c-di-AMP riboswitch aptamer (ydaO/yuaA leader): a 204-nucleotide sequence from Candidatus Protofrankia californiensis. Rfam links the family to the GO terms cyclic-di-AMP binding and regulation of gene expression.

RNA sequence: ACCGAAAUGCCGAAUCCUGCCCACGGUCCCGGUGUUCCCUCCGAGUCGUCACCAGGGCAGGAGCGGGGGACCCAUCCUCCACCGGACGGCACCGAGCCGCGGUGUCGUCCUCGGGGUGAAGUGUGCAGCGCGAUGGUCGCGUGACCCACCGGGCAGCCCAGCCCGAACCCGACAGCUCACCUCGCAGGCGAACGGGAAGGAUCA
Numbered sequence: 001a002c003c004g005a006a007a008u009g010c011c012g013a014a015u016c017c018u019g020c021c022c023a024c025g026g027u028c029c030c031g032g033u034g035u036u037c038c039c040u041c042c043g044a045g046u047c048g049u050c051a052c053c054a055g056g057g058c059a060g061g062a063g064c065g066g067g068g069g070a071c072c073c074a075u076c077c078u079c080c081a082c083c084g085g086a087c088g089g090c091a092c093c094g095a096g097c098c099g100c101g102g103u104g105u106c107g108u109c110c111u112c113g114g115g116g117u118g119a120a121g122u123g124u125g126c127a128g129c130g131c132g133a134u135g136g137u138c139g140c141g142u143g144a145c146c147c148a149c150c151g152g153g154c155a156g157c158c159c160a161g162c163c164c165g166a167a168c169c170c171g172a173c174a175g176c177u178c179a180c181c182u183c184g185c186a187g188g189c190g191a192a193c194g195g196g197a198a199g200g201a202u203c204a
Stems, first nucleotide, its partner, number of pairs: 008190004015062008063185006073113001114170003122148002125145001151164004